[Rfam]
RNA sequence: GGGGUGUUGGUGGGUGAAAAGCUGGAUGUGACCCAGCAAUGUGUGCUGGCAGCCCAGAAAGCCAACAGCACCCA
Numbered sequence: 001g002g003g004g005u006g007u008u009g010g011u012g013g014g015u016g017a018a019a020a021g022c023u024g025g026a027u028g029u030g031a032c033c034c035a036g037c038a039a040u041g042u043g044u045g046c047u048g049g050c051a052g053c054c055c056a057g058a059a060a061g062c063c064a065a066c067a068g069c070a071c072c073c074a
Base pairs, nucleotide, nucleotide: 002073003072004071005070006069007068008067009063010062012034013033014032015031017029036050037049

This 74-nucleotide sequence from Colius striatus belongs to the Rfam family "Small nucleolar RNA SNORD71". Rfam's curators write: snoRNA HBII-239 belongs to the family of C/D snoRNAs.It is the human orthologue of the mouse MBII-239 described and is predicted to guide 2'O-ribose methylation of 5.8S rRNA on residue U14. On this family, see Huttenhofer et al., EMBO J 2001: "RNomics: an experimental approach that identifies 201 candidates for novel, small, non-messenger RNAs in mouse". The organism belongs to Colius, within Eukaryota. By type it is an H/ACA-box small nucleolar RNA.